[Rfam]
RNA sequence: UUUCAAUGAUGCUUCUGUCAUGCUAAUACCGAGGAGAAUUUUUACAAAUUCUUUUAUGAGUUAAAUCAAAUCUUCUCAAUUACUAUAUCUGAGGAAA
Numbered sequence: 001u002u003u004c005a006a007u008g009a010u011g012c013u014u015c016u017g018u019c020a021u022g023c024u025a026a027u028a029c030c031g032a033g034g035a036g037a038a039u040u041u042u043u044a045c046a047a048a049u050u051c052u053u054u055u056a057u058g059a060g061u062u063a064a065a066u067c068a069a070a071u072c073u074u075c076u077c078a079a080u081u082a083c084u085a086u087a088u089c090u091g092a093g094g095a096a097a
Stems, first nucleotide, its partner, number of pairs: 001096004035052005
A member of the RNA family "Small nucleolar RNA U6-53/MBII-28" from Strigamia maritima, 97 nucleotides long. The family has 25 seed sequences and 780 matches in Rfam 15.1. For this family Rfam cites "RNomics: an experimental approach that identifies 201 candidates for novel, small, non-messenger RNAs in mouse" (Huttenhofer et al., EMBO J, 2001). Pairs were carried over by alignment from the consensus structure. Rfam classes the family as a C/D-box small nucleolar RNA. NCBI's taxonomy places the organism under Eukaryota, Metazoa, Arthropoda, Mandibulata, Strigamia. The match comes from Rfam's covariance-model search (39 bits).